This 87-nucleotide sequence from Cohnella terricola belongs to the Rfam family "c-di-GMP-I riboswitch aptamer".
The source organism's lineage runs through Bacteria, Bacillati, Caryophanales, Paenibacillaceae and Cohnella.
About the family: GEMM was predicted in a large-scale screen for bacterial structured RNA regulatory elements.
[Rfam]
RNA sequence: UACAUGAAAAGGCAAACCUCUUGAAAGAGGGGGACGCAAAGCUAUGGGCCUAAGGAACGAACGUUCUAUGGUCGCCAAGCUGCCGAA
Numbered sequence: 001u002a003c004a005u006g007a008a009a010a011g012g013c014a015a016a017c018c019u020c021u022u023g024a025a026a027g028a029g030g031g032g033g034a035c036g037c038a039a040a041g042c043u044a045u046g047g048g049c050c051u052a053a054g055g056a057a058c059g060a061a062c063g064u065u066c067u068a069u070g071g072u073c074g075c076c077a078a079g080c081u082g083c084c085g086a087a
Stems, first nucleotide, its partner, number of pairs: 012037002017032006040081004045077003048072003055066004